[Rfam]
RNA sequence: GAAUUAAAUAGGCGAUCUCCAGAGACAGCAGGAGCCAAUGGCUUAAUUUCCUGCCGAGGUUUGCGCCCUAAACUCCUGAAUAGCCAAUGUUGUGGCUUUUACCAACAUGGCAUCAGGAGUGUGGGUAACCCCGGCAGAAUGUCCGGGGUUUUUGAUUGGUUGG
Numbered sequence: 001g002a003a004u005u006a007a008a009u010a011g012g013c014g015a016u017c018u019c020c021a022g023a024g025a026c027a028g029c030a031g032g033a034g035c036c037a038a039u040g041g042c043u044u045a046a047u048u049u050c051c052u053g054c055c056g057a058g059g060u061u062u063g064c065g066c067c068c069u070a071a072a073c074u075c076c077u078g079a080a081u082a083g084c085c086a087a088u089g090u091u092g093u094g095g096c097u098u099u100u101a102c103c104a105a106c107a108u109g110g111c112a113u114c115a116g117g118a119g120u121g122u123g124g125g126u127a128a129c130c131c132c133g134g135c136a137g138a139a140u141g142u143c144c145g146g147g148g149u150u151u152u153u154g155a156u157u158g159g160u161u162g163g
Stems, first nucleotide, its partner, number of pairs: 028054006034042003129148006

Annotation
The family of this 163-nucleotide RNA from Microcoleus sp. FACHB-68 is "Ribosomal protein L10 leader". About the family: This family is a putative r-protein leader autoregulatory structure found in B. subtilis and other low-GC Gram-positive bacteria. It is located in the 5' untranslated regions of mRNAs encoding ribosomal proteins L10 and L12 (rplJ-rplL). A Rho-independent transcription terminator structure that is probably involved in regulation is included at the 3' end. NCBI's taxonomy places the organism under Bacteria, Bacillati, Cyanophyceae, Oscillatoriophycideae, Microcoleus. Rfam classes the family as a cis-regulatory leader. A reference for the family is Zengel and Lindahl (1994), "Diverse mechanisms for regulating ribosomal protein synthesis in Escherichia coli", Prog Nucleic Acid Res Mol Biol. Its family is annotated with regulation of gene expression in the Gene Ontology.